This 190-nucleotide RNA from Anopheles gambiae belongs to the Rfam family "drz-agam-2-2 ribozyme". Gene Ontology term of the family: catalytic activity. It scores 168 bits against the family's covariance model. The organism belongs to Anopheles gambiae, within Eukaryota. For this family Rfam cites "Widespread occurrence of self-cleaving ribozymes" (Webb et al., Science, 2009).
[Rfam]
RNA sequence: AGCAAUACCUCGCUGAUACGAGGGUAGAUCCGAAGCCUCUAGAAAAUUAACAUAGGCUCUCCACCUCCUACUCCUACUCAAUACGUUCCCGUCGUACAGAAUGGUAACAUGUCUAUCAAUUAUCCAAGCUUGGGUAUACGGGGAAACCCAAUCCCUUGCGAGGAUGGAUUGCAUGGUAAUAUUGAGAGAG
Number, nucleotide and partner (000 for none) at each position: 001a000002g000003c000004a000005a000006u000007a000008c000009c000010u101011c000012g000013c000014u000015g000016a000017u000018a000019c000020g000021a000022g067023g065024g064025u063026a000027g061028a060029u000030c056031c055032g000033a000034a000035g000036c000037c000038u000039c000040u000041a000042g000043a000044a000045a000046a000047u000048u000049a000050a000051c000052a000053u000054a000055g031056g030057c000058u000059c000060u028061c027062c000063a025064c024065c023066u000067c022068c000069u000070a000071c000072u190073c000074c188075u187076a000077c186078u185079c184080a183081a182082u181083a095084c094085g093086u000087u104088c103089c000090c000091g000092u000093c085094g084095u083096a000097c000098a000099g000100a000101a010102u000103g088104g087105u000106a000107a000108c175109a174110u173111g172112u171113c000114u000115a000116u167117c166118a000119a000120u000121u000122a165123u164124c163125c162126a000127a000128g000129c000130u151131u150132g149133g148134g147135u146136a000137u000138a000139c000140g000141g000142g000143g000144a000145a000146a135147c134148c133149c132150a131151a130152u000153c160154c000155c000156u000157u000158g000159c000160g153161a000162g125163g124164a123165u122166g117167g116168a000169u000170u000171g112172c111173a110174u109175g108176g000177u000178a000179a000180u000181a082182u081183u080184g079185a078186g077187a075188g074189a000190g072